[Rfam]
RNA sequence: GGGCCUGGCGUCCCGCCCUCCCCGGGGAAACGUGAACCGGGGCUUCCUGCCAGGCCUACACCGGGGGAUGAAGAGCUUUUGCUUUGCUGACUGUGAUGAGCACGCCCUUCACUGACCCCGUAUCAGCUCU
Numbered sequence: 001g002g003g004c005c006u007g008g009c010g011u012c013c014c015g016c017c018c019u020c021c022c023c024g025g026g027g028a029a030a031c032g033u034g035a036a037c038c039g040g041g042g043c044u045u046c047c048u049g050c051c052a053g054g055c056c057u058a059c060a061c062c063g064g065g066g067g068a069u070g071a072a073g074a075g076c077u078u079u080u081g082c083u084u085u086g087c088u089g090a091c092u093g094u095g096a097u098g099a100g101c102a103c104g105c106c107c108u109u110c111a112c113u114g115a116c117c118c119c120g121u122a123u124c125a126g127c128u129c130u
Stems, first nucleotide, its partner, number of pairs: 001057010015044001017042002022040004
RNA: Small nucleolar RNA snoR9
Organism: Thermococcus kodakarensis